This 303-nucleotide sequence from Rhodococcus oxybenzonivorans belongs to the Rfam family "Mycobacterium smegmatis small RNA 1". The match comes from Rfam's covariance-model search (168 bits). Rfam's curators write: Mycobacterium smegmatis small RNA 1 is highly expressed during stationary phase of growth. Ms1 RNA directly interacts with RNA polymerase (RNAP), but in a different way than 6S, which is present in other bacteria. Ms1 does not require the presence of the main sigma factor for RNAP interaction. There is evidence that Ms1 RNA may function similar to 6S RNA in M. smegmatis which does not have 6S RNA.

RNA sequence: ACGGAAGAACGGAAGGCCAAGAUCGACCCGGAAGAGAAGGAUCGAUCUCCCGACCGCGAUUCCCGGCACGGGCACUAGGUACCCACGCGGAGCACAAGCCACUAUAAGGGCAGAAGUGUUGUGGGCCUGCGAGACUCGCGUUUCAUCGGCAAGGACCCUGCACCGGUUGCAGGGACGACCCGACGAUCGUCGAACUCUCGCCGAGGCCAUCCACACAACCCACCGAGCACGCUUGGUAACCGGUAGUCCGCGCUGACGGGCGGCGAAGUCGACGAGAGUCGGCAGCGCCGCCCGUUUCGUGUG
Dot-bracket structure: ..((.(...((...((...((..(((.((.........)).)))..)).))...))...).))((((.((((..((.(((..(((.(((..((....(((........)))......(((((((((((((((...(((((.(...(((((.....(((((((.....)))))))..)..))))..).)).)))....))))..))))).....)))))).......)).))).)))..)))))...)))).))))((((((((((..(((..........)))..))))))))))........